[Rfam]
RNA sequence: UGAGUCGGCCAGGCGGUCGCGUCGGCAGCCACCCCCGGUAUAAACCGGUAGGGUCUGCCGCCGAGGAACGUCCGGGCUCCACAGGGCAGGGUGGUGGCUAACGGCCACCCGGGGUGACCCGCGGGACAGUGCCACAGAGAAUAGACCGCCUGUUCUCCUCCGGUGACCCGGAGAAGAACAGGUAAGGGUGAAACGGUGUGUGUAAGAGACCACCAGCACGCCAGGUGACUGGCGUGGCUUGGUAAACCCCACCCGGAGCAAGACCAGACAGUGCACGUUAGAGGGCUGCCCGCCCGAGUGCACGGGUAGGUCGCUAGAGGUGCCUGGCAACAGUCACCCGAGAUGGAUGGCCGCUCAUGACAGAACCCGGCGUACAGGCCGACUCAUCCG
Numbered sequence: 001u002g003a004g005u006c007g008g009c010c011a012g013g014c015g016g017u018c019g020c021g022u023c024g025g026c027a028g029c030c031a032c033c034c035c036c037g038g039u040a041u042a043a044a045c046c047g048g049u050a051g052g053g054u055c056u057g058c059c060g061c062c063g064a065g066g067a068a069c070g071u072c073c074g075g076g077c078u079c080c081a082c083a084g085g086g087c088a089g090g091g092u093g094g095u096g097g098c099u100a101a102c103g104g105c106c107a108c109c110c111g112g113g114g115u116g117a118c119c120c121g122c123g124g125g126a127c128a129g130u131g132c133c134a135c136a137g138a139g140a141a142u143a144g145a146c147c148g149c150c151u152g153u154u155c156u157c158c159u160c161c162g163g164u165g166a167c168c169c170g171g172a173g174a175a176g177a178a179c180a181g182g183u184a185a186g187g188g189u190g191a192a193a194c195g196g197u198g199u200g201u202g203u204a205a206g207a208g209a210c211c212a213c214c215a216g217c218a219c220g221c222c223a224g225g226u227g228a229c230u231g232g233c234g235u236g237g238c239u240u241g242g243u244a245a246a247c248c249c250c251a252c253c254c255g256g257a258g259c260a261a262g263a264c265c266a267g268a269c270a271g272u273g274c275a276c277g278u279u280a281g282a283g284g285g286c287u288g289c290c291c292g293c294c295c296g297a298g299u300g301c302a303c304g305g306g307u308a309g310g311u312c313g314c315u316a317g318a319g320g321u322g323c324c325u326g327g328c329a330a331c332a333g334u335c336a337c338c339c340g341a342g343a344u345g346g347a348u349g350g351c352c353g354c355u356c357a358u359g360a361c362a363g364a365a366c367c368c369g370g371c372g373u374a375c376a377g378g379c380c381g382a383c384u385c386a387u388c389c390g
Stems, first nucleotide, its partner, number of pairs: 001386010012355007020063002023060006068373003072370005077258004084291004089254005094108005109123001110121004124249002129247002131243003146187002148183009195214004200210002216238001217236008262312004271303006283295004319338004324333003
This 390-nucleotide RNA from Austwickia chelonae belongs to the Rfam family "Bacterial RNase P class A". Taxonomically the source falls in Austwickia chelonae (Bacteria, Actinomycetes, Micrococcales, Dermatophilaceae). Its family is annotated with tRNA processing, ribonuclease P activity and dimeric ribonuclease P complex in the Gene Ontology.